[Rfam]
RNA sequence: UGGAUCGAUGAUGACUACUGUGGUGUAUUAGCUGUGUAUGUUCAAUAUGUGUCUGGAACUCUGAGGUUGAA
Numbered sequence: 001u002g003g004a005u006c007g008a009u010g011a012u013g014a015c016u017a018c019u020g021u022g023g024u025g026u027a028u029u030a031g032c033u034g035u036g037u038a039u040g041u042u043c044a045a046u047a048u049g050u051g052u053c054u055g056g057a058a059c060u061c062u063g064a065g066g067u068u069g070a071a
Base pairs, nucleotide, nucleotide: 003068004067005066006065
Dot-bracket structure: ..((((..........................................................))))...